Rfam assigns this 135-nucleotide RNA from Labeo rohita to the family "U8 small nucleolar RNA". Taxonomically the source falls in Labeo (Eukaryota, Opisthokonta, Clupeocephala, Cypriniformes).
RNA sequence: AUAUCAGUAAGGUUAAUUCUUACCUGCAGAUCUUAGAAAUAAGAUCGCAGAACAUGAUGAAUGGAUUUCAUGAAUACGUGAUUAUUACCCGUAUUCGUUUAGGGUCUUGCAACCCCUUUACGAAUCCUAUCUGAU
Numbered sequence: 001a002u003a004u005c006a007g008u009a010a011g012g013u014u015a016a017u018u019c020u021u022a023c024c025u026g027c028a029g030a031u032c033u034u035a036g037a038a039a040u041a042a043g044a045u046c047g048c049a050g051a052a053c054a055u056g057a058u059g060a061a062u063g064g065a066u067u068u069c070a071u072g073a074a075u076a077c078g079u080g081a082u083u084a085u086u087a088c089c090c091g092u093a094u095u096c097g098u099u100u101a102g103g104g105u106c107u108u109g110c111a112a113c114c115c116c117u118u119u120a121c122g123a124a125u126c127c128u129a130u131c132u133g134a135u
Stems, first nucleotide, its partner, number of pairs: 024050003029046007073095002076092003079084001100120005
Rfam classes the family as a C/D-box small nucleolar RNA.